Bacterial RNase P class A: a 399-nucleotide sequence from Alloscardovia theropitheci. Rfam classes the family as a ribozyme. The base pairs follow the family's consensus structure, which is taken from published work.
RNA sequence: UGAGACCUUUGGGUGGCCGCGGUUUUAUUUUAUAAUUCUGAGGAACUUCCGGGCUCCGUAGAGCACGAUGGCGGAUAACGUCCGCCCAGGGUAACCUGAGAGAUAGCGCAACAGAGAAUAGACCGCUCCAUAAUGCUUUGGAUUUUGGAGUAAGGGUGAAACGGCGGUGUAAGAGACCACCGGAUUGUUGGUAACAUCAAUCGCAUGGCAAGCCUCAUCGGGAGCAAGGUCAAGUAGAAUACAUUGAAGCUGCUCGCUUAAGUAUUCGGGUAGACUGCUAGAGCUUAAUGGCAACAUUAAGUCGAGAUGGAUGGUCACCCCUAGCGCAUAUAUGCUUUUGCCUAUAUGACUGCUAUCAAGCCGCUAGGACAGAACCCGGGGUAUAUAAGGUCUCACUUU
Numbered sequence: 001u002g003a004g005a006c007c008u009u010u011g012g013g014u015g016g017c018c019g020c021g022g023u024u025u026u027a028u029u030u031u032a033u034a035a036u037u038c039u040g041a042g043g044a045a046c047u048u049c050c051g052g053g054c055u056c057c058g059u060a061g062a063g064c065a066c067g068a069u070g071g072c073g074g075a076u077a078a079c080g081u082c083c084g085c086c087c088a089g090g091g092u093a094a095c096c097u098g099a100g101a102g103a104u105a106g107c108g109c110a111a112c113a114g115a116g117a118a119u120a121g122a123c124c125g126c127u128c129c130a131u132a133a134u135g136c137u138u139u140g141g142a143u144u145u146u147g148g149a150g151u152a153a154g155g156g157u158g159a160a161a162c163g164g165c166g167g168u169g170u171a172a173g174a175g176a177c178c179a180c181c182g183g184a185u186u187g188u189u190g191g192u193a194a195c196a197u198c199a200a201u202c203g204c205a206u207g208g209c210a211a212g213c214c215u216c217a218u219c220g221g222g223a224g225c226a227a228g229g230u231c232a233a234g235u236a237g238a239a240u241a242c243a244u245u246g247a248a249g250c251u252g253c254u255c256g257c258u259u260a261a262g263u264a265u266u267c268g269g270g271u272a273g274a275c276u277g278c279u280a281g282a283g284c285u286u287a288a289u290g291g292c293a294a295c296a297u298u299a300a301g302u303c304g305a306g307a308u309g310g311a312u313g314g315u316c317a318c319c320c321c322u323a324g325c326g327c328a329u330a331u332a333u334g335c336u337u338u339u340g341c342c343u344a345u346a347u348g349a350c351u352g353c354u355a356u357c358a359a360g361c362c363g364c365u366a367g368g369a370c371a372g373a374a375c376c377c378g379g380g381g382u383a384u385a386u387a388a389g390g391u392c393u394c395a396c397u398u399u
Stems, first nucleotide, its partner, number of pairs: 001395009011384001012319007020040003025035004045382003049379005054224004061255004066220005071085005086100001087098004101215002106213002108209002123155002125151006132144002163181002166178003182204001183202005189196002228276004237267006247259004283302008
Dot-bracket structure: (((((((((.((((((((.(((..((((...))))..)))....[[[.[[[[[((((...[[[[.((((((((((.....)))))(((((....)))).)((...((((.............((((((((.((.........)).))))))..)).......((.(((.......))).))((((((.((....)).))))).)...))..)))))))))))))...((((.....((((((....((((.]]]]))))..)))))).....))))......((((((((....))))))))..........))))))).......................................................]]]]]]]].)..)))))))))....